A member of the RNA family "Small nucleolar RNA snoR100" from Populus trichocarpa, 117 nucleotides long. It is annotated as an H/ACA-box small nucleolar RNA. Gene Ontology terms of the family: nucleolus and RNA processing. On this family, see Marker et al., Curr Biol 2002: "Experimental RNomics: identification of 140 candidates for small non-messenger RNAs in the plant Arabidopsis thaliana". The organism belongs to Populus, within Eukaryota. It is one of the family's seed sequences.

RNA sequence: UGAUGAAGGAAGCAUGGUAAGGUACACGGAAAUUGAAGUUUUGGGUCGGCAUGUCUGCUCCCUCUGAUGCCUCUCUUUGGAGGAUAUGAUUUGGAGGCCUGGUUUAGACCCACAUUU
Numbered sequence: 001u002g003a004u005g006a007a008g009g010a011a012g013c014a015u016g017g018u019a020a021g022g023u024a025c026a027c028g029g030a031a032a033u034u035g036a037a038g039u040u041u042u043g044g045g046u047c048g049g050c051a052u053g054u055c056u057g058c059u060c061c062c063u064c065u066g067a068u069g070c071c072u073c074u075c076u077u078u079g080g081a082g083g084a085u086a087u088g089a090u091u092u093g094g095a096g097g098c099c100u101g102g103u104u105u106a107g108a109c110c111c112a113c114a115u116u117u
Base pairs, nucleotide, nucleotide: 012025014023015022043100044099045098046097047096053090054089055088058083059082